[Rfam]
RNA: MIR408 microRNA precursor family
RNA sequence: AAGUGGUAAAUGAGAUAGACAGGGAACAAGCAGAGCAUGGAUUGAGUUUACCAAAACAUCAUACGACUGUGUUUUGUCUCUUCCCAUGCACUGCCUCUUCCCUGGCUCUCCCUCUCUCUCUUUCU
Numbered sequence: 001a002a003g004u005g006g007u008a009a010a011u012g013a014g015a016u017a018g019a020c021a022g023g024g025a026a027c028a029a030g031c032a033g034a035g036c037a038u039g040g041a042u043u044g045a046g047u048u049u050a051c052c053a054a055a056a057c058a059u060c061a062u063a064c065g066a067c068u069g070u071g072u073u074u075u076g077u078c079u080c081u082u083c084c085c086a087u088g089c090a091c092u093g094c095c096u097c098u099u100c101c102c103u104g105g106c107u108c109u110c111c112c113u114c115u116c117u118c119u120c121u122u123u124c125u
Stems, first nucleotide, its partner, number of pairs: 017107002020104007028096001030094004035089006044080002
Dot-bracket structure: ................((.(((((((.(.((((.((((((...((.................................))...)))))).)))).).))))))).))..................